The record is a 100-nucleotide RNA from Oceanobacillus picturae, which matches "Guanidine-I riboswitch aptamer" in Rfam. On this family, see Reiss et al., Structure 2017: "Structural Basis for Ligand Binding to the Guanidine-I Riboswitch".

RNA sequence: AGAUAAGUUUUCUAGGGUUCCGCAACGAAACACGUUGGUCUGGUCCGAGAGAAAACUCACAGCCUUUGCUGUGUCACGGAAGGAUAAAAGCCUGGGAGGA
Numbered sequence: 001a002g003a004u005a006a007g008u009u010u011u012c013u014a015g016g017g018u019u020c021c022g023c024a025a026c027g028a029a030a031c032a033c034g035u036u037g038g039u040c041u042g043g044u045c046c047g048a049g050a051g052a053a054a055a056c057u058c059a060c061a062g063c064c065u066u067u068g069c070u071g072u073g074u075c076a077c078g079g080a081a082g083g084a085u086a087a088a089a090g091c092c093u094g095g096g097a098g099g100a
Stems, first nucleotide, its partner, number of pairs: 007056006015046002020043002022040001023037005058073006075095001077098001081093003
Rfam describes the family as follows. This family represents a conserved RNA structure found upstream of the ykkC and yxkD genes in Bacillus subtilis and related genes in other bacteria. The function of this family is unclear although it has been suggested that it may function to switch on efflux pumps and detoxification systems in response to harmful environmental molecules. The pairing is the family consensus, mapped onto this sequence.